This 64-nucleotide sequence from Sulfobacillus harzensis belongs to the Rfam family "Fluoride riboswitch aptamer (crcB RNA motif)". Lineage of the source: Bacteria > Bacillati > Bacillota > Eubacteriales > Sulfobacillus.
RNA sequence: AAUGGUCGUGGAGAUGAAGCUCUCCUCACAACUGCCGAGAUCGGCUGAUGGCUUCUAUGUGAAG
Number, nucleotide and partner (000 for none) at each position: 001a000002a000003u000004g000005g000006u000007c000008g000009u000010g025011g024012a023013g022014a000015u000016g055017a054018a053019g052020c051021u050022c013023u012024c011025c010026u000027c000028a000029c000030a000031a000032c000033u000034g045035c044036c043037g042038a000039g000040a000041u000042c037043g036044g035045c034046u000047g000048a000049u000050g021051g020052c019053u018054u017055c016056u000057a000058u000059g000060u000061g000062a000063a000064g000